[Rfam]
Source information
The record is a 128-nucleotide RNA from Takifugu flavidus, which matches "Small nucleolar RNA SNORA44" in Rfam. Rfam links the family to the GO terms RNA processing and nucleolus. For this family Rfam cites "RNomics: an experimental approach that identifies 201 candidates for novel, small, non-messenger RNAs in mouse" (Huttenhofer et al., EMBO J, 2001). The source organism's lineage runs through Eukaryota, Bilateria, Actinopteri, Tetraodontiformes and Takifugu. The match comes from Rfam's covariance-model search (64 bits). Rfam's curators write: ACA44 is a member of the H/ACA class of snoRNA that guide the sites of modification of uridines to pseudouridines.
RNA sequence: ACGCAUGCUAUCCUAAGGAUCCAGGCUUGUCUGUAGUUCUGGGUUCUCCAUGUGCGUGCAAGAAAACAGGGCAGUCUUUGACUGCUGUGGCCUCAUGUCAUCAGCAGCCACUCAGCUGUCCGACAGUA
Numbered sequence: 001a002c003g004c005a006u007g008c009u010a011u012c013c014u015a016a017g018g019a020u021c022c023a024g025g026c027u028u029g030u031c032u033g034u035a036g037u038u039c040u041g042g043g044u045u046c047u048c049c050a051u052g053u054g055c056g057u058g059c060a061a062g063a064a065a066a067c068a069g070g071g072c073a074g075u076c077u078u079u080g081a082c083u084g085c086u087g088u089g090g091c092c093u094c095a096u097g098u099c100a101u102c103a104g105c106a107g108c109c110a111c112u113c114a115g116c117u118g119u120c121c122g123a124c125a126g127u128a
Base pairs, nucleotide, nucleotide: 012042013041018038019037020035022033023032024031069121070120071119072118073117074116084108085107087101088100089099090098